The record is a 248-nucleotide RNA sequence from Trifolium subterraneum, which matches "RNase MRP" in Rfam.

[Rfam]
RNA sequence: CUGAUCAUGAAGUGGUGUGAAUGGGUCCUUGCUAUGCUGGGCUCAGGAAAGUCCCCGGGCCCAAUCUGCAGAAAUGUAGGCCCGGUAACGGGUAAAUCUUCAAGUUGGGCUUGUCUCAUGUUUCGGUGUGAGGGGCUGAGACACGUGUGUGGAGCCCAUGCAUGUCUAACUGAAGAAAAUUGGCCAAUAUAUACAGUCAUUCACAUGGUCCUUGUGACUAACUGAACGGGGCUUAUACUUCAUGAUCC
Numbered sequence: 001c002u003g004a005u006c007a008u009g010a011a012g013u014g015g016u017g018u019g020a021a022u023g024g025g026u027c028c029u030u031g032c033u034a035u036g037c038u039g040g041g042c043u044c045a046g047g048a049a050a051g052u053c054c055c056c057g058g059g060c061c062c063a064a065u066c067u068g069c070a071g072a073a074a075u076g077u078a079g080g081c082c083c084g085g086u087a088a089c090g091g092g093u094a095a096a097u098c099u100u101c102a103a104g105u106u107g108g109g110c111u112u113g114u115c116u117c118a119u120g121u122u123u124c125g126g127u128g129u130g131a132g133g134g135g136c137u138g139a140g141a142c143a144c145g146u147g148u149g150u151g152g153a154g155c156c157c158a159u160g161c162a163u164g165u166c167u168a169a170c171u172g173a174a175g176a177a178a179a180u181u182g183g184c185c186a187a188u189a190u191a192u193a194c195a196g197u198c199a200u201u202c203a204c205a206u207g208g209u210c211c212u213u214g215u216g217a218c219u220a221a222c223u224g225a226a227c228g229g230g231g232c233u234u235a236u237a238c239u240u241c242a243u244g245a246u247c248c
Stems, first nucleotide, its partner, number of pairs: 003247009015206006022045007049234003053231004067078004080093005097176002104170006122162001124160001133157004143150002208218003
Source information: RNase MRP is an enzymatically active ribonucleoprotein with two distinct roles in eukaryotes. The family's consensus secondary structure is taken from published work. Rfam 15.1 lists 3,510 matches to the family in 2,315 species. It scores 75 bits against the family's covariance model. Its family is annotated with ribonuclease MRP activity, rRNA processing and ribonuclease MRP complex in the Gene Ontology.